[Rfam]
RNA: FMN riboswitch aptamer (RFN element)
RNA sequence: GUUCAUCUUCAGGGCAGGGUGCGAUUCCCGACCGGCGGUAAUAGUCCGUGACCUACUCGUUUGAGUAGUUGAUUCGGUGUAACUCCGAAACCGACAGUAAAGUCUGGUAUAAAGAAGAUUGGG
Numbered sequence: 001g002u003u004c005a006u007c008u009u010c011a012g013g014g015c016a017g018g019g020u021g022c023g024a025u026u027c028c029c030g031a032c033c034g035g036c037g038g039u040a041a042u043a044g045u046c047c048g049u050g051a052c053c054u055a056c057u058c059g060u061u062u063g064a065g066u067a068g069u070u071g072a073u074u075c076g077g078u079g080u081a082a083c084u085c086c087g088a089a090a091c092c093g094a095c096a097g098u099a100a101a102g103u104c105u106g107g108u109a110u111a112a113a114g115a116a117g118a119u120u121g122g123g
Stems, first nucleotide, its partner, number of pairs: 003121001005119006017029003031103002033093002035049004044091002053068002073089005095106003
Dot-bracket structure: ..(.((((((......(((.......))).[[((((((.....[[))))...((............))....(((((.......)))))]])).(((....]]))).......)))))).)..